[Rfam]
RNA sequence: GCCUGUUCUCAGGGCGGGGUGAAAUUCCCCACCGGUGGUAUGCAGGUUCGCCUGUGAGCCCACGAGCGCCCCGCACCGCGGGGGUCUAGCAGAUCAGGUGAGAGGCCUGAGCCGACGGUCAUAGUCCGGAUGAAAGAGAACGCAG
Numbered sequence: 001g002c003c004u005g006u007u008c009u010c011a012g013g014g015c016g017g018g019g020u021g022a023a024a025u026u027c028c029c030c031a032c033c034g035g036u037g038g039u040a041u042g043c044a045g046g047u048u049c050g051c052c053u054g055u056g057a058g059c060c061c062a063c064g065a066g067c068g069c070c071c072c073g074c075a076c077c078g079c080g081g082g083g084g085u086c087u088a089g090c091a092g093a094u095c096a097g098g099u100g101a102g103a104g105g106c107c108u109g110a111g112c113c114g115a116c117g118g119u120c121a122u123a124g125u126c127c128g129g130a131u132g133a134a135a136g137a138g139a140a141c142g143c144a145g
Stems, first nucleotide, its partner, number of pairs: 004142007017029003031125002033114002035063004058112002066090002094110005116128003

The record is a 145-nucleotide RNA sequence from Tateyamaria sp. ANG-S1, which matches "FMN riboswitch aptamer (RFN element)" in Rfam. The RFN element is a highly conserved domain that is found frequently in the 5'-untranslated regions of prokaryotic mRNAs that encode for flavin mononucleotide (FMN) biosynthesis and transport proteins. Its family is annotated with FMN binding in the Gene Ontology. The organism belongs to Tateyamaria, within Bacteria. A search with the family's covariance model found it, with a score of 108 bits.